[Rfam]
RNA: Nitrogen stress-induced RNA 1
Organism: Nostoc sp. PCC 7120 = FACHB-418
RNA sequence: UGGUAGAUGCACCCUGAUAACUAACUCCCCUAGUUGGCUGCCACCACUAGGGGUUUUUUAU
Numbered sequence: 001u002g003g004u005a006g007a008u009g010c011a012c013c014c015u016g017a018u019a020a021c022u023a024a025c026u027c028c029c030c031u032a033g034u035u036g037g038c039u040g041c042c043a044c045c046a047c048u049a050g051g052g053g054u055u056u057u058u059u060a061u
Stems, first nucleotide, its partner, number of pairs: 002013003027053008036045002